A member of the RNA family "Trypanosomatid snoRNA TB8Cs3H1" from Angomonas deanei, 63 nucleotides long.

[Rfam]
RNA sequence: AUGGGAUUCGAAUGCGCUGUCGCUUGUAAAUUUCGACUUGUGCGGGAAACGUCUCAAAGAUUU
Numbered sequence: 001a002u003g004g005g006a007u008u009c010g011a012a013u014g015c016g017c018u019g020u021c022g023c024u025u026g027u028a029a030a031u032u033u034c035g036a037c038u039u040g041u042g043c044g045g046g047a048a049a050c051g052u053c054u055c056a057a058a059g060a061u062u063u
Stems, first nucleotide, its partner, number of pairs: 002056006014043004019037003
Overview
By type it is an H/ACA-box small nucleolar RNA. Lineage of the source: Eukaryota > Discoba > Kinetoplastea > Trypanosomatida > Angomonas. Pairs were carried over by alignment from the consensus structure, which was predicted with WAR. The literature on the family includes a 2005 paper in RNA by Liang et al., "A genome-wide analysis of C/D and H/ACA-like small nucleolar RNAs in Trypanosoma brucei reveals a trypanosome-specific pattern of rRNA modification". Rfam links the family to the GO terms RNA processing and nucleolus.